[Rfam]
RNA sequence: ACGACCUUACUUGAACAGGAUCUGUUCUAUAGGCUCGUACCUCUGUAUCCUUGAGUUCUAAGGAGACAGGAACUAAAGUCUGGUGGAUGAACCAUGACCCUGUGAUCAGAGCGUGAUUAACGGUCUGGUGUCCCUUCUCUCAGGAGAAGAUACAUCCUUAGCUGUAGAGGAUCGUUCCCAGUCAUUAUGUUUGGGAUGGUCACAGGGUUGUCUGACAGACU
Numbered sequence: 001a002c003g004a005c006c007u008u009a010c011u012u013g014a015a016c017a018g019g020a021u022c023u024g025u026u027c028u029a030u031a032g033g034c035u036c037g038u039a040c041c042u043c044u045g046u047a048u049c050c051u052u053g054a055g056u057u058c059u060a061a062g063g064a065g066a067c068a069g070g071a072a073c074u075a076a077a078g079u080c081u082g083g084u085g086g087a088u089g090a091a092c093c094a095u096g097a098c099c100c101u102g103u104g105a106u107c108a109g110a111g112c113g114u115g116a117u118u119a120a121c122g123g124u125c126u127g128g129u130g131u132c133c134c135u136u137c138u139c140u141c142a143g144g145a146g147a148a149g150a151u152a153c154a155u156c157c158u159u160a161g162c163u164g165u166a167g168a169g170g171a172u173c174g175u176u177c178c179c180a181g182u183c184a185u186u187a188u189g190u191u192u193g194g195g196a197u198g199g200u201c202a203c204a205g206g207g208u209u210g211u212c213u214g215a216c217a218g219a220c221u
Stems, first nucleotide, its partner, number of pairs: 001038002003035001005033003013027006043069004048064006078220005097208012110176004120165005127156005178194004183189002
The record is a 221-nucleotide RNA from Phaseolus vulgaris, which matches "Plant small nucleolar RNA U3" in Rfam. Clan: U3 clan. A reference for the family is Zwieb (1997), "The uRNA database", Nucleic Acids Res. It is annotated as a C/D-box small nucleolar RNA. The match comes from Rfam's covariance-model search (187 bits). NCBI's taxonomy places the organism under Eukaryota, eudicotyledons, Fabales, Fabaceae, Phaseolus. Small nucleolar RNAs (snoRNAs) are involved in the processing and modification of rRNA in the nucleolus. There are two main classes of snoRNAs: the box C/D class, and the box H/ACA class. U3 snoRNA is a member of the box C/D class. Indeed, the box C/D element is a subset of the six short sequence elements found in all U3 snoRNAs, namely boxes A, A', B, C, C', and D. The U3 snoRNA secondary structure is characterised by a small 5' domain (with boxes A and A'), and a larger 3' domain (with boxes B, C, C', and D), the two domains being linked by a single-stranded hinge. Boxes B and C form the B/C motif, which appears to be exclusive to U3 snoRNAs, and boxes C' and D form the C'/D motif. The latter is functionally similar to the C/D motifs found in other snoRNAs. The 5' domain and the hinge region act as a pre-rRNA-binding domain. The 3' domain has conserved protein-binding sites. Both the box B/C and box C'/D motifs are sufficient for nuclear retention of U3 snoRNA. The box C'/D motif is also necessary for nucleolar localisation, stability and hyper-methylation of U3 snoRNA. Both box B/C and C'/D motifs are involved in specific protein interactions and are necessary for the rRNA processing functions of U3 snoRNA.